[Rfam]
RNA: Glycine riboswitch aptamer
Organism: Clostridium puniceum
RNA sequence: AUGAAGGCAGUGGGAGAGUUGUUAUUAUAAAUUUAGAUAAAGUUAUAAUAAUGCACCGAAGAGAGAAAUAUUUCAGGUAAAUGGGACCGUUGCUGGACG
Numbered sequence: 001a002u003g004a005a006g007g008c009a010g011u012g013g014g015a016g017a018g019u020u021g022u023u024a025u026u027a028u029a030a031a032u033u034u035a036g037a038u039a040a041a042g043u044u045a046u047a048a049u050a051a052u053g054c055a056c057c058g059a060a061g062a063g064a065g066a067a068a069u070a071u072u073u074c075a076g077g078u079a080a081a082u083g084g085g086a087c088c089g090u091u092g093c094u095g096g097a098c099g
Base pairs, nucleotide, nucleotide: 006094007093008092009091010090011089012088013087020053021052022051023050024049025048026047027046028045029044030043055078056077057076058074059073062072063071